[Rfam]
RNA sequence: CCAAAGGCUCUUUUCAGAGCCACCCAAUAAUUUCAGCGAAAGAAGCU
Numbered sequence: 001c002c003a004a005a006g007g008c009u010c011u012u013u014u015c016a017g018a019g020c021c022a023c024c025c026a027a028u029a030a031u032u033u034c035a036g037c038g039a040a041a042g043a044a045g046c047u
Base pairs, nucleotide, nucleotide: 006021007020008019009018010017011016
Rfam assigns this 47-nucleotide RNA sequence from Erinaceus europaeus to the family "Histone 3' UTR stem-loop".
The family's consensus secondary structure is taken from published work.
The match comes from Rfam's covariance-model search (39 bits).
From the family's description: The mRNAs of metazoan histone genes lack a poly-A tail. 3' end processing occurs at a site between a highly conserved stem-loop (modelled by this family) and a purine rich region around 20 nts downstream (the histone downstream element, or HDE). The stem-loop is bound by a 31 kDa stem-loop binding protein (SLBP - also termed the histone hairpin binding protein, or HBP). Together with U7 snRNA binding of the HDE, SLBP binding nucleate s the formation of the processing complex. The histone 3' UTR stem-loop is also involved in nucleocytoplasmic transport of the mRNA, and in stability regulation and translation efficiency in the cytoplasm.